The family of this 69-nucleotide RNA sequence from Nocardia wallacei is "ASpks TB sRNA". A search with the family's covariance model found it, with a score of 70 bits. Rfam 15.1 lists 9,052 matches to the family in 683 species. The family's RNA type in Rfam is antisense RNA. A reference for the family is Arnvig and Young (2009), "Identification of small RNAs in Mycobacterium tuberculosis", Mol Microbiol.
[Rfam]
RNA sequence: CUUGAUGGAGCCGAGCCACAGCGGCGACUGCCGAUUCUGCCCGUAGGUGGCCAGCAGCGCCUGCGCCUC
Numbered sequence: 001c002u003u004g005a006u007g008g009a010g011c012c013g014a015g016c017c018a019c020a021g022c023g024g025c026g027a028c029u030g031c032c033g034a035u036u037c038u039g040c041c042c043g044u045a046g047g048u049g050g051c052c053a054g055c056a057g058c059g060c061c062u063g064c065g066c067c068u069c
Stems, first nucleotide, its partner, number of pairs: 015025003029065003032059002037054003041050003